[Rfam]
RNA sequence: AUAUUGGCAUAUUUUCAUUUACGUAUAACCCCAUAAUUAUGGAUGGGGGUUUCUACAGGAAGCCGAAACUUCCCAGCUACGUAACGGAAUCGGUAUUUU
Numbered sequence: 001a002u003a004u005u006g007g008c009a010u011a012u013u014u015u016c017a018u019u020u021a022c023g024u025a026u027a028a029c030c031c032c033a034u035a036a037u038u039a040u041g042g043a044u045g046g047g048g049g050u051u052u053c054u055a056c057a058g059g060a061a062g063c064c065g066a067a068a069c070u071u072c073c074c075a076g077c078u079a080c081g082u083a084a085c086g087g088a089a090u091c092g093g094u095a096u097u098u099u
Stems, first nucleotide, its partner, number of pairs: 019084007029048006058073005